[Rfam]
RNA sequence: GAAGUCCACUAGGGGUGCCAUUUGGCUGAGAUAAGGCUUGUGCCUUGAUCCCUUGGAACCUGAUCUGGUUAAUACCAGCGUAGGAAAGUGGAGCCGGUUUGCU
Numbered sequence: 001g002a003a004g005u006c007c008a009c010u011a012g013g014g015g016u017g018c019c020a021u022u023u024g025g026c027u028g029a030g031a032u033a034a035g036g037c038u039u040g041u042g043c044c045u046u047g048a049u050c051c052c053u054u055g056g057a058a059c060c061u062g063a064u065c066u067g068g069u070u071a072a073u074a075c076c077a078g079c080g081u082a083g084g085a086a087a088g089u090g091g092a093g094c095c096g097g098u099u100u101g102c103u
Stems, first nucleotide, its partner, number of pairs: 006091005011053004016047001017026003033046005059084004065078004

Rfam assigns this 103-nucleotide RNA sequence from Scopulibacillus darangshiensis to the family "TPP riboswitch aptamer (THI element)". The match comes from Rfam's covariance-model search (86 bits). The source organism's lineage runs through Bacteria, Bacillati, Caryophanales, Sporolactobacillaceae and Scopulibacillus. Gene Ontology term of the family: thiamine pyrophosphate binding. The family's consensus secondary structure is taken from published work.